[Rfam]
RNA sequence: UAGCUGCAGUGAGGAUUUAUGAAUAUUUGCACAUGUCAGACUUCAGAGAUCUUCAACGGAUCAAUGAGAUGAAAAUUCAUUUUUCUGAGCAGCUA
Numbered sequence: 001u002a003g004c005u006g007c008a009g010u011g012a013g014g015a016u017u018u019a020u021g022a023a024u025a026u027u028u029g030c031a032c033a034u035g036u037c038a039g040a041c042u043u044c045a046g047a048g049a050u051c052u053u054c055a056a057c058g059g060a061u062c063a064a065u066g067a068g069a070u071g072a073a074a075a076u077u078c079a080u081u082u083u084u085c086u087g088a089g090c091a092g093c094u095a
Stems, first nucleotide, its partner, number of pairs: 001095007048062004
A member of the RNA family "Small nucleolar RNA R64/Z200 family" from Kingdonia uniflora, 95 nucleotides long.
It scores 88 bits against the family's covariance model.
By type it is a C/D-box small nucleolar RNA.
Its family is annotated with nucleolus and RNA processing in the Gene Ontology.